[Rfam]
RNA sequence: CACGGGAUGCCGAGAUCUGGGUCCCGCGAUAACUGAACUCGCUGAUAUUCAGGAGAUCGAAAAUGAAC
Numbered sequence: 001c002a003c004g005g006g007a008u009g010c011c012g013a014g015a016u017c018u019g020g021g022u023c024c025c026g027c028g029a030u031a032a033c034u035g036a037a038c039u040c041g042c043u044g045a046u047a048u049u050c051a052g053g054a055g056a057u058c059g060a061a062a063a064u065g066a067a068c
Base pairs, nucleotide, nucleotide: 001028003026004025005024006023007022008021010020011019012018032057038055039054040053042052043051044050045049

Annotation: The family of this 68-nucleotide RNA from Azomonas macrocytogenes is "Repression of heat shock gene expression (ROSE) element". The organism belongs to Azomonas, within Bacteria. Pairs were carried over by alignment from the consensus structure. It scores 52 bits against the family's covariance model. By type it is an RNA thermoregulator. Its family is annotated with regulation of translation and response to temperature stimulus in the Gene Ontology.